[Rfam]
RNA sequence: AGGUGGCUGGGGUUCCUGGUGAUGCGAUUUCUUUCACCACUGAAAAUCACAUUGCCAGGGAUUUCCAAUUACCA
Numbered sequence: 001a002g003g004u005g006g007c008u009g010g011g012g013u014u015c016c017u018g019g020u021g022a023u024g025c026g027a028u029u030u031c032u033u034u035c036a037c038c039a040c041u042g043a044a045a046a047u048c049a050c051a052u053u054g055c056c057a058g059g060g061a062u063u064u065c066c067a068a069u070u071a072c073c074a
Stems, first nucleotide, its partner, number of pairs: 002073001004071003010066002012062013026048005
RNA: mir-23 microRNA precursor family